[Rfam]
Overview
The family of this 197-nucleotide sequence from Paenibacillus sp. FSL R7-0331 is "c-di-AMP riboswitch aptamer (ydaO/yuaA leader)". Gene Ontology terms of the family: regulation of gene expression and cyclic-di-AMP binding.
Nucleotides: 197
Stems, first nucleotide, its partner, number of pairs: 011180004018032005033175006043084002085160003093134004137154004
Number, partner (000 for none) and nucleotide at each position: 001000a002000u003000a004000u005000g006000a007000a008000a009000u010000c011180c012179g013178c014177u015000u016000a017000a018032u019031u020030u021029c022028c023000g024000u025000u026000a027000c028022g029021g030020a031019a032018a033175g034174c035173g036172g037171g038170g039000g040000a041000a042000c043084c044083a045000a046000c047000a048000a049000c050000c051000g052000g053000a054000g055000g056000a057000c058000g059000c060000g061000g062000g063000u064000a065000a066000g067000c068000a069000g070000g071000c072000g073000g074000u075000g076000c077000c078000g079000g080000u081000u082000a083044u084043g085160g086159g087158g088000u089000g090000a091000a092000u093134c094133c095132u096131u097000g098000a099000g100000u101000c102000u103000g104000u105000g106000a107000g108000a109000a110000g111000c112000u113000u114000a115000a116000g117000c118000u119000u120000c121000u122000c123000a124000c125000a126000g127000a128000g129000g130000g131096a132095a133094g134093g135000u136000a137154g138153g139152g140151c141000g142000a143000c144000u145000c146000u147000c148000a149000a150000c151140g152139c153138c154137c155000g156000a157000a158087u159086c160085c161000g162000g163000c164000a165000g166000c167000u168000a169000a170038c171037c172036u173035c174034g175033u176000a177014a178013g179012c180011g181000u182000a183000u184000u185000g186000c187000a188000g189000a190000g191000a192000g193000g194000a195000u196000c197000a